The family of this 96-nucleotide sequence from Microbacterium sorbitolivorans is "TPP riboswitch aptamer (THI element)". Rfam's curators write: Vitamin B(1) in its active form thiamin pyrophosphate (TPP) is an essential coenzyme that is synthesised by coupling of pyrimidine and thiazole moieties in bacteria.

RNA sequence: GGCAGUGACACGGGGUGCCGCGGAAAGCGGCUGAGACUACACCCGUCGAACCUGAUCCAGUUAGUACUGGCGAAGGGAUUGUCCGGCUCGCUAUGC
Numbered sequence: 001g002g003c004a005g006u007g008a009c010a011c012g013g014g015g016u017g018c019c020g021c022g023g024a025a026a027g028c029g030g031c032u033g034a035g036a037c038u039a040c041a042c043c044c045g046u047c048g049a050a051c052c053u054g055a056u057c058c059a060g061u062u063a064g065u066a067c068u069g070g071c072g073a074a075g076g077g078a079u080u081g082u083c084c085g086g087c088u089c090g091c092u093a094u095g096c
Stems, first nucleotide, its partner, number of pairs: 007083004011045004016039001017031005051076003057070004

A search with the family's covariance model found it, with a score of 72 bits. The family's consensus secondary structure is taken from published work.